[Rfam]
The family of this 116-nucleotide sequence from Dioscorea zingiberensis is "Small nucleolar RNA Z278". It scores 60 bits against the family's covariance model. Rfam classes the family as a C/D-box small nucleolar RNA. Lineage of the source: Eukaryota > Tracheophyta > Liliopsida > Dioscoreaceae > Dioscorea. A reference for the family is Chen et al. (2003), "The high diversity of snoRNAs in plants: identification and comparative study of 120 snoRNA genes from Oryza sativa", Nucleic Acids Res.

RNA sequence: GCCUGUGAUGAUGCAUCCAUAUUGUGGAGGUGUAGUUUGGUCCAAGUCCCUGAUUUCAGGGAGAACCUACUUGGGUUGGCUACAUUCAAAUGACAUUAAAUGGAUAGGACUGAGGC
Numbered sequence: 001g002c003c004u005g006u007g008a009u010g011a012u013g014c015a016u017c018c019a020u021a022u023u024g025u026g027g028a029g030g031u032g033u034a035g036u037u038u039g040g041u042c043c044a045a046g047u048c049c050c051u052g053a054u055u056u057c058a059g060g061g062a063g064a065a066c067c068u069a070c071u072u073g074g075g076u077u078g079g080c081u082a083c084a085u086u087c088a089a090a091u092g093a094c095a096u097u098a099a100a101u102g103g104a105u106a107g108g109a110c111u112g113a114g115g116c
Base pairs, nucleotide, nucleotide: 001116002115003114048061049060050059051058052057
Gene Ontology terms of the family: RNA processing and nucleolus. From the family's description: snoZ278 is a C/D box small nucleolar RNA. Its methylation guide targets have not been reported.